[Rfam]
RNA sequence: AAGUGUGGAUGGUCGCUGUCUGUUGCAAAACAGACAGAGGAAAGUCCAGGCUCGCCCGGGCUGAGAUGCCCGGAGUGUUUGUGCCUAUCGCAAGGUAGGGCAGCCGGUGGUCCGGCUGACGGCGGUGAAAUCGGCUACGUUCCUUUUGGAAUAUGCCGAAACUAGCCUGAAAGUGCCACAGUGACGAAGCUCUGUGGGAAACCACAGAGGUGGAACGAGGUAAACCCCUCAAGCGAGCAACCCAAAUUUUGGUAGGGGCACUGUCUGAAGGGAACUGAACCGGACGACAGACGAAGAAUGCUUCGUAGAUAGAUGACUGUCACUUCUUGUACCAGGCUGGCUGCCGCUACGAGUACGGAAGUACAAAACCUGGCUUACAGCA
Numbered sequence: 001a002a003g004u005g006u007g008g009a010u011g012g013u014c015g016c017u018g019u020c021u022g023u024u025g026c027a028a029a030a031c032a033g034a035c036a037g038a039g040g041a042a043a044g045u046c047c048a049g050g051c052u053c054g055c056c057c058g059g060g061c062u063g064a065g066a067u068g069c070c071c072g073g074a075g076u077g078u079u080u081g082u083g084c085c086u087a088u089c090g091c092a093a094g095g096u097a098g099g100g101c102a103g104c105c106g107g108u109g110g111u112c113c114g115g116c117u118g119a120c121g122g123c124g125g126u127g128a129a130a131u132c133g134g135c136u137a138c139g140u141u142c143c144u145u146u147u148g149g150a151a152u153a154u155g156c157c158g159a160a161a162c163u164a165g166c167c168u169g170a171a172a173g174u175g176c177c178a179c180a181g182u183g184a185c186g187a188a189g190c191u192c193u194g195u196g197g198g199a200a201a202c203c204a205c206a207g208a209g210g211u212g213g214a215a216c217g218a219g220g221u222a223a224a225c226c227c228c229u230c231a232a233g234c235g236a237g238c239a240a241c242c243c244a245a246a247u248u249u250u251g252g253u254a255g256g257g258g259c260a261c262u263g264u265c266u267g268a269a270g271g272g273a274a275c276u277g278a279a280c281c282g283g284a285c286g287a288c289a290g291a292c293g294a295a296g297a298a299u300g301c302u303u304c305g306u307a308g309a310u311a312g313a314u315g316a317c318u319g320u321c322a323c324u325u326c327u328u329g330u331a332c333c334a335g336g337c338u339g340g341c342u343g344c345c346g347c348u349a350c351g352a353g354u355a356c357g358g359a360a361g362u363a364c365a366a367a368a369c370c371u372g373g374c375u376u377a378c379a380g381c382a
Stems, first nucleotide, its partner, number of pairs: 004382003007378001008321007016037006042376003046373005051237005056073006079232003083228001084099006100120001101118006121227002124167003132158004139152005173225002175221003190209008241257003261290005267285001291306006323361005329356004
Rfam assigns this 382-nucleotide sequence from Aneurinibacillus soli to the family "Bacterial RNase P class B". Clan: RNaseP clan. NCBI's taxonomy places the organism under Bacteria, Bacillati, Bacilli, Caryophanales, Aneurinibacillus.